SAM riboswitch aptamer (S box leader): a 118-nucleotide RNA sequence from Texcoconibacillus texcoconensis. The SAM riboswitch is found upstream of a number of genes which code for proteins involved in methionine or cysteine biosynthesis in Gram-positive bacteria. The SAM riboswitch acts at the level of transcription termination control. Gene Ontology term of the family: regulation of gene expression.
RNA sequence: CUCUUAUUUAGAGAGGUGGAGGGACUGGCCCUAUGAAGCCCGGCAACCACUCGCAUACUUAAUGUAUGAGGGAAGGUGCCAAAUCCUGCAAAGCUAUAAUGGCUUUGAAAGAUGAGAG
Numbered sequence: 001c002u003c004u005u006a007u008u009u010a011g012a013g014a015g016g017u018g019g020a021g022g023g024a025c026u027g028g029c030c031c032u033a034u035g036a037a038g039c040c041c042g043g044c045a046a047c048c049a050c051u052c053g054c055a056u057a058c059u060u061a062a063u064g065u066a067u068g069a070g071g072g073a074a075g076g077u078g079c080c081a082a083a084u085c086c087u088g089c090a091a092a093g094c095u096a097u098a099a100u101g102g103c104u105u106u107g108a109a110a111g112a113u114g115a116g117a118g
Stems, first nucleotide, its partner, number of pairs: 001118008013041001015040003021031003025088001027086002042080004047076002050071002084110001089107006